[Rfam]
RNA: 7SK RNA
Organism: Chrysochloris asiatica
RNA sequence: UGUGAGGGUGAUCUGGCUGCAACAUCUGUCACCCCAUUGAUCGCCAGGGUUGAUUCGGCUGAUCUGGCUGGCUAGGCAGGUGUCCCCUUCCUCCCUCACCGGUCCAUGUGCGUCCCUCCCGAAGCUGCGCACUUGGUUGAAGAUGACGACCUUCCCCGAUAGAGGAGAGAACCGUCCUUUGGUCAAGGGUUUACAAGUAGCUGCGCUCCCUUGUUAGAACCUCCAAACAAGCUCUGGUAGUAUAGUGCUUACGAAUUGGGCUGCUAACCUCAAGGUUGGAAGUUCAAAACUACCAGCUGUUCCGCCGGAGAAAGAUGAGGCUUUCUGCUCCU
Numbered sequence: 001u002g003u004g005a006g007g008g009u010g011a012u013c014u015g016g017c018u019g020c021a022a023c024a025u026c027u028g029u030c031a032c033c034c035c036a037u038u039g040a041u042c043g044c045c046a047g048g049g050u051u052g053a054u055u056c057g058g059c060u061g062a063u064c065u066g067g068c069u070g071g072c073u074a075g076g077c078a079g080g081u082g083u084c085c086c087c088u089u090c091c092u093c094c095c096u097c098a099c100c101g102g103u104c105c106a107u108g109u110g111c112g113u114c115c116c117u118c119c120c121g122a123a124g125c126u127g128c129g130c131a132c133u134u135g136g137u138u139g140a141a142g143a144u145g146a147c148g149a150c151c152u153u154c155c156c157c158g159a160u161a162g163a164g165g166a167g168a169g170a171a172c173c174g175u176c177c178u179u180u181g182g183u184c185a186a187g188g189g190u191u192u193a194c195a196a197g198u199a200g201c202u203g204c205g206c207u208c209c210c211u212u213g214u215u216a217g218a219a220c221c222u223c224c225a226a227a228c229a230a231g232c233u234c235u236g237g238u239a240g241u242a243u244a245g246u247g248c249u250u251a252c253g254a255a256u257u258g259g260g261c262u263g264c265u266a267a268c269c270u271c272a273a274g275g276u277u278g279g280a281a282g283u284u285c286a287a288a289a290c291u292a293c294c295a296g297c298u299g300u301u302c303c304g305c306c307g308g309a310g311a312a313a314g315a316u317g318a319g320g321c322u323u324u325c326u327g328c329u330c331c332u
Base pairs, nucleotide, nucleotide: 002099003098004097005096006095007094008093010090011089015087016086022083023082024081025080026079027078028077029076030075032071033070034067035066036065039064040063041062042061043059044058045057113170114169115165116164117163118162119136120135121134122133124132137159138158139157145154146153200269202267206263209260210259211258213256214255222254223253227250230246273332274331275330277327278326279325280324281323283319284318285317286316